[Rfam]
RNA sequence: GGUCAAGAGAGCCAGCACUAAGCCCCAGCUAGCUGGUCGGCAACCCUCCACUCGCGGUGGGGUGCCCUGGGUGAAGACCUGGCGUACCCAUCGAGAACCAGGUACGCAAGCGCGGGAC
Number, nucleotide and partner (000 for none) at each position: 001g079002g078003u077004c076005a000006a000007g000008a000009g038010a000011g037012c036013c035014a034015g033016c032017a000018c000019u000020a000021a030022g029023c000024c000025c000026c000027a000028g000029c022030u021031a000032g016033c015034u014035g013036g012037u011038c009039g066040g065041c064042a000043a000044c062045c061046c060047u000048c057049c056050a000051c000052u000053c000054g000055c000056g049057g048058u000059g000060g046061g045062g044063u000064g041065c040066c039067c000068u000069g000070g000071g000072u000073g000074a000075a000076g004077a003078c002079c001080u000081g000082g107083c106084g105085u104086a103087c102088c101089c000090a000091u100092c000093g098094a000095g000096a000097a000098c093099c000100a091101g088102g087103u086104a085105c084106g083107c082108a000109a000110g000111c000112g000113c000114g000115g000116g000117a000118c000
Shown here is a 118-nucleotide sequence from Rothia nasimurium, a member of the family "SAM (S-adenosyl methionine) riboswitch aptamer". The match comes from Rfam's covariance-model search (102 bits). Rfam's curators write: SAM-IV is a mRNA element that regulates gene expression via direct sensing of S-adenosylmethionine (SAM or AdoMet).